[Rfam]
RNA: 6S-Flavo RNA
RNA sequence: ACUCAACAUUAAAUUGUUUAAAAAGGGUGAGUUUAAAUGGUAAAAGCAAGCCUUACUCGUAUAAGGAUCCUUGAUCUAUUUGUUAGCCCUAAACCUGUAUUUUGGAGUUU
Numbered sequence: 001a002c003u004c005a006a007c008a009u010u011a012a013a014u015u016g017u018u019u020a021a022a023a024a025g026g027g028u029g030a031g032u033u034u035a036a037a038u039g040g041u042a043a044a045a046g047c048a049a050g051c052c053u054u055a056c057u058c059g060u061a062u063a064a065g066g067a068u069c070c071u072u073g074a075u076c077u078a079u080u081u082g083u084u085a086g087c088c089c090u091a092a093a094c095c096u097g098u099a100u101u102u103u104g105g106a107g108u109u110u
Stems, first nucleotide, its partner, number of pairs: 024090005035081005044072003051066004